[Rfam]
RNA sequence: GCUCGUAUGGCGCAGUGGUAGCGCAGCAGAUUGCAAAUCUGUUGGUCCUUAGUUCGAUCCUGAGUGCGAGCU
Numbered sequence: 001g002c003u004c005g006u007a008u009g010g011c012g013c014a015g016u017g018g019u020a021g022c023g024c025a026g027c028a029g030a031u032u033g034c035a036a037a038u039c040u041g042u043u044g045g046u047c048c049u050u051a052g053u054u055c056g057a058u059c060c061u062g063a064g065u066g067c068g069a070g071c072u
Stems, first nucleotide, its partner, number of pairs: 001071007010024004026042005048064005
Notes
This 72-nucleotide RNA from Saccharomyces cerevisiae belongs to the Rfam family "tRNA". It is one of the family's seed sequences.